[Rfam]
RNA: mir-2807 microRNA precursor family
RNA sequence: UUAACUCAAAUUUGUAUGGAGUUGGAACCUUUGCCAACGUUUGCCGCUAGAGACGCUGUUCCAACUCCAUACAAAUCAGAGUUA
Numbered sequence: 001u002u003a004a005c006u007c008a009a010a011u012u013u014g015u016a017u018g019g020a021g022u023u024g025g026a027a028c029c030u031u032u033g034c035c036a037a038c039g040u041u042u043g044c045c046g047c048u049a050g051a052g053a054c055g056c057u058g059u060u061c062c063a064a065c066u067c068c069a070u071a072c073a074a075a076u077c078a079g080a081g082u083u084a
Stems, first nucleotide, its partner, number of pairs: 010076007018068001020066009034052001039047002